[Rfam]
RNA: Plastid-rps12 3UTR RNA
Organism: Paris verticillata
RNA sequence: GGUUUCCAUUGGUGUAAAUCCAAUCACCUCGAUUUGAGAUGAGAAUAAAUCCCCCAUUGGUAGCAAUGGUUAUCCAUUAAGCGGGGGAAAUAGUAUU
Numbered sequence: 001g002g003u004u005u006c007c008a009u010u011g012g013u014g015u016a017a018a019u020c021c022a023a024u025c026a027c028c029u030c031g032a033u034u035u036g037a038g039a040u041g042a043g044a045a046u047a048a049a050u051c052c053c054c055c056a057u058u059g060g061u062a063g064c065a066a067u068g069g070u071u072a073u074c075c076a077u078u079a080a081g082c083g084g085g086g087g088a089a090a091u092a093g094u095a096u097u
Base pairs, nucleotide, nucleotide: 009023010022011021012020052086053085054084055083056077057076059074060073061072062071063070064069